[Rfam]
RNA: mir-965 microRNA precursor family
Organism: Hyalella azteca
RNA sequence: GUAUGGACGGGAAAAGCUGUCACGAUUAUGUGUUUUUUAUGUCAUAAGCGUAUGGCUUUUCCCCUCUGUCC
Numbered sequence: 001g002u003a004u005g006g007a008c009g010g011g012a013a014a015a016g017c018u019g020u021c022a023c024g025a026u027u028a029u030g031u032g033u034u035u036u037u038u039a040u041g042u043c044a045u046a047a048g049c050g051u052a053u054g055g056c057u058u059u060u061c062c063c064c065u066c067u068g069u070c071c
Stems, first nucleotide, its partner, number of pairs: 003069005009063003013059002017055004026047005